[Rfam]
RNA sequence: CAAGACGAUCCGGAACGUGUAACUUUUCCCAAACAUAAUUAUGGUCAUUAACCUUGAAUAAUUGAGGGAUGACCUCAUUUAAUCUCCAGUAGCAAAUUUGACCUGUUAUGGGAGGAAUUAUGCGUCUGGAUCGUCUUAC
Dot-bracket structure: .(((((((((((..(((((.((.............................((((((....))))))((((....))))...(((((.(((...............))).)))))..)).))))).)))))))))))..
Numbered sequence: 001c002a003a004g005a006c007g008a009u010c011c012g013g014a015a016c017g018u019g020u021a022a023c024u025u026u027u028c029c030c031a032a033a034c035a036u037a038a039u040u041a042u043g044g045u046c047a048u049u050a051a052c053c054u055u056g057a058a059u060a061a062u063u064g065a066g067g068g069a070u071g072a073c074c075u076c077a078u079u080u081a082a083u084c085u086c087c088a089g090u091a092g093c094a095a096a097u098u099u100g101a102c103c104u105g106u107u108a109u110g111g112g113a114g115g116a117a118u119u120a121u122g123c124g125u126c127u128g129g130a131u132c133g134u135c136u137u138a139c
Stems, first nucleotide, its partner, number of pairs: 002137011015125005021119002052067006068079004083115005089109003